[Rfam]
RNA sequence: AUCGGACGAAUGACGACGCCGACGCAAAGUCCCAGCGGACCGGUCGGUGUCUGAGGUGUGUCUGAU
Numbered sequence: 001a002u003c004g005g006a007c008g009a010a011u012g013a014c015g016a017c018g019c020c021g022a023c024g025c026a027a028a029g030u031c032c033c034a035g036c037g038g039a040c041c042g043g044u045c046g047g048u049g050u051c052u053g054a055g056g057u058g059u060g061u062c063u064g065a066u
Base pairs, nucleotide, nucleotide: 001066002065003064004063005062015051016050017049018048019047020046021045022044023043030039031038032037